[Rfam]
RNA sequence: GUUUAGCCCUGAUUGAAGUGGUAUCCUUUUUUUGUUUUUCGCAAAAAAAGAUAAAACGGAAAGCAGGAAAUAGC
Numbered sequence: 001g002u003u004u005a006g007c008c009c010u011g012a013u014u015g016a017a018g019u020g021g022u023a024u025c026c027u028u029u030u031u032u033u034g035u036u037u038u039u040c041g042c043a044a045a046a047a048a049a050g051a052u053a054a055a056a057c058g059g060a061a062a063g064c065a066g067g068a069a070a071u072a073g074c
Stems, first nucleotide, its partner, number of pairs: 009066003013062002018057002023052003028048008

Shown here is a 74-nucleotide sequence from Polaribacter marinus, a member of the family "Flavo-1 RNA".